[Rfam]
This 192-nucleotide RNA belongs to the Rfam family "RAGATH-14 RNA". For this family Rfam cites "New classes of self-cleaving ribozymes revealed by comparative genomics analysis" (Weinberg et al., Nat Chem Biol, 2015). Rfam's curators put it in the seed alignment. It is annotated as a small RNA.
RNA sequence: AGGAGUUGCCAAGAGUAAGACACUUGAACAGUAAGUCUAGCUGAUAAGUAAGUUCUUCAUAAGAGAACACUUCCAUUACGAAUUCAGUCGCAAAUUGUAGAAUUAGCUACUCUACAAUUUAGUGAACGUUAGUAACGUUGUAAUAUAAUAUAGUCUUUGGAAGGAUUAUAGUGUAUUACUAAAUAACUCCUC
Numbered sequence: 001a002g003g004a005g006u007u008g009c010c011a012a013g014a015g016u017a018a019g020a021c022a023c024u025u026g027a028a029c030a031g032u033a034a035g036u037c038u039a040g041c042u043g044a045u046a047a048g049u050a051a052g053u054u055c056u057u058c059a060u061a062a063g064a065g066a067a068c069a070c071u072u073c074c075a076u077u078a079c080g081a082a083u084u085c086a087g088u089c090g091c092a093a094a095u096u097g098u099a100g101a102a103u104u105a106g107c108u109a110c111u112c113u114a115c116a117a118u119u120u121a122g123u124g125a126a127c128g129u130u131a132g133u134a135a136c137g138u139u140g141u142a143a144u145a146u147a148a149u150a151u152a153g154u155c156u157u158u159g160g161a162a163g164g165a166u167u168a169u170a171g172u173g174u175a176u177u178a179c180u181a182a183a184u185a186a187c188u189c190c191u192c
Stems, first nucleotide, its partner, number of pairs: 010026004041087004048079004052068005070163006088125004092120003096116006126138004141178004146173002149170006